[Rfam]
A member of the RNA family "Small nucleolar RNA U109" from Monodelphis domestica, 145 nucleotides long. Gene Ontology terms of the family: RNA processing and nucleolus. Pairs were carried over by alignment from the consensus structure, which was predicted with WAR. The organism belongs to Monodelphis, within Eukaryota. On this family, see Gu et al., Nucleic Acids Res 2005: "A novel experimental approach for systematic identification of box H/ACA snoRNAs from eukaryotes".
RNA sequence: CUGCAUGUUGGACUUUUUAAAGUCAUACUUCUUAAUGCAAUAGAAGUAUGAAUAUAACCAGUACAUGCUAUAUAAAAAUAUAGGAGUUUUCAGGGCUGCCAACCUUGCAGUAAAGGUUGAGUAGUAGUAUAUUUCUCCUACAUCA
Numbered sequence: 001c002u003g004c005a006u007g008u009u010g011g012a013c014u015u016u017u018u019a020a021a022g023u024c025a026u027a028c029u030u031c032u033u034a035a036u037g038c039a040a041u042a043g044a045a046g047u048a049u050g051a052a053u054a055u056a057a058c059c060a061g062u063a064c065a066u067g068c069u070a071u072a073u074a075a076a077a078a079u080a081u082a083g084g085a086g087u088u089u090u091c092a093g094g095g096c097u098g099c100c101a102a103c104c105u106u107g108c109a110g111u112a113a114a115g116g117u118u119g120a121g122u123a124g125u126a127g128u129a130u131a132u133u134u135c136u137c138c139u140a141c142a143u144c145a
Stems, first nucleotide, its partner, number of pairs: 003068006024050008083138004095125002099121001100119007
Dot-bracket structure: ..((((((...............((((((((...........))))))))............))))))..............((((........((..((((((((......))))))).)..)).........)))).......